[Rfam]
RNA: DUF3800-VIII RNA
RNA sequence: AAGGCCCUGCCAAAUCGAAGCUCCAGGUUCCUACCUGGAAGGAAUUUGUAGAGGCGGUGGGGCUCU
Numbered sequence: 001a002a003g004g005c006c007c008u009g010c011c012a013a014a015u016c017g018a019a020g021c022u023c024c025a026g027g028u029u030c031c032u033a034c035c036u037g038g039a040a041g042g043a044a045u046u047u048g049u050a051g052a053g054g055c056g057g058u059g060g061g062g063c064u065c066u
Base pairs, nucleotide, nucleotide: 001066003064004063005062006061007060008059009058010057011056015053016051022039023038024037025036026035027034028033